The family of this 119-nucleotide RNA from Pseudoalteromonas sp. NBT06-2 is "TPP riboswitch aptamer (THI element)". The family has 115 seed sequences and 16,130 matches in Rfam 15.1. The family's consensus secondary structure is taken from published work.
RNA sequence: AGUUACUUGUCGGAGUGCUCUAAUUAUACAAUUUGUAUAUGAUGAGCUGAGAUCGCGUAAGCGGGAUCCGUGAACCUGAAUAGAUUAAUAUCUACGUAGGAAACAAGCGCCCAAUUACA
Number, nucleotide and partner (000 for none) at each position: 001a000002g000003u000004u000005a000006c107007u106008u105009g104010u103011c070012g069013g068014a067015g000016u064017g047018c046019u045020c044021u000022a000023a000024u000025u000026a000027u000028a000029c000030a000031a000032u000033u000034u000035g000036u000037a000038u000039a000040u000041g000042a000043u000044g020045a019046g018047c017048u000049g000050a000051g000052a000053u000054c063055g062056c061057g000058u000059a000060a000061g056062c055063g054064g016065g000066a000067u014068c013069c012070g011071u000072g000073a000074a000075c100076c099077u098078g097079a000080a000081u094082a093083g092084a091085u000086u000087a000088a000089u000090a000091u084092c083093u082094a081095c000096g000097u078098a077099g076100g075101a000102a000103a010104c009105a008106a007107g006108c000109g000110c000111c000112c000113a000114a000115u000116u000117a000118c000119a000